Notes:
Rfam assigns this 128-nucleotide RNA sequence from Bacillus salacetis to the family "PyrR binding site". Its family is annotated with pyrimidine nucleobase transport and pyrimidine nucleobase biosynthetic process in the Gene Ontology. For this family Rfam cites "Molecular recognition of pyr mRNA by the Bacillus subtilis attenuation regulatory protein PyrR" (Bonner et al., Nucleic Acids Res, 2001).
[Rfam]
RNA sequence: GAAACCUUUAAUGCAGUCCCGUGAGGCUGAGAAGGAACUUUUCAUGAACUUACACUACAGGAGUGCAGUGUAAGGAUUUCAAACGAUAAGUAUGCCCUCUCACCAAUACGGUGGGAGGGAUUUUUUGU
Numbered sequence: 001g002a003a004a005c006c007u008u009u010a011a012u013g014c015a016g017u018c019c020c021g022u023g024a025g026g027c028u029g030a031g032a033a034g035g036a037a038c039u040u041u042u043c044a045u046g047a048a049c050u051u052a053c054a055c056u057a058c059a060g061g062a063g064u065g066c067a068g069u070g071u072a073a074g075g076a077u078u079u080c081a082a083a084c085g086a087u088a089a090g091u092a093u094g095c096c097c098u099c100u101c102a103c104c105a106a107u108a109c110g111g112u113g114g115g116a117g118g119g120a121u122u123u124u125u126u127g128u
Base pairs, nucleotide, nucleotide: 005035006034007033008032009031014029015028016027017026018025046077049074050073051072052071053070054069055068056067058065059064092122095119096118097117098116099115100114101113102112103111104110